A member of the RNA family "Salmonella enterica sRNA STnc40" from Kluyvera genomosp. 3, 70 nucleotides long. The organism belongs to Kluyvera, within Bacteria. The family's consensus secondary structure was predicted with LocARNA. The family's RNA type in Rfam is small RNA. It scores 82 bits against the family's covariance model.
[Rfam]
Nucleotides: 070
Stems, first nucleotide, its partner, number of pairs: 002019003006013002043068011
Number, partner (000 for none) and nucleotide at each position: 001000a002019c003018a004017g005000u006013g007012c008000c009000a010000u011000g012007g013006c014000c015000g016000u017004c018003u019002g020000a021000g022000c023000u024000a025000a026000g027000g028000u029000c030000a031000u032000a033000a034000u035000a036000a037000g038000a039000a040000a041000a042000c043068a044067a045066a046065a047064g048063g049062c050061g051060c052059a053058g054000a055000g056000u057000u058053c059052u060051g061050c062049g063048c064047c065046u066045u067044u068043u069000u070000u